The family of this 87-nucleotide RNA sequence from Thalassotalea algicola is "c-di-GMP-I riboswitch aptamer". The base pairs follow the family's consensus structure, which is taken from published work.
RNA sequence: ACAAAGAAAAGGCAAAGCAUAUGAAAGUGUGCUACGCAAAACCACCGGUCUAAGGGCAUUGACGCCUACGACAGCGGAGUUACCUCA
Numbered sequence: 001a002c003a004a005a006g007a008a009a010a011g012g013c014a015a016a017g018c019a020u021a022u023g024a025a026a027g028u029g030u031g032c033u034a035c036g037c038a039a040a041a042c043c044a045c046c047g048g049u050c051u052a053a054g055g056g057c058a059u060u061g062a063c064g065c066c067u068a069c070g071a072c073a074g075c076g077g078a079g080u081u082a083c084c085u086c087a
Stems, first nucleotide, its partner, number of pairs: 012037002017032006040081003045077003048072003055066003
Dot-bracket structure: ...........((...((((((....))))))...))..(((..((((((....(((......)))...)))..))).)))......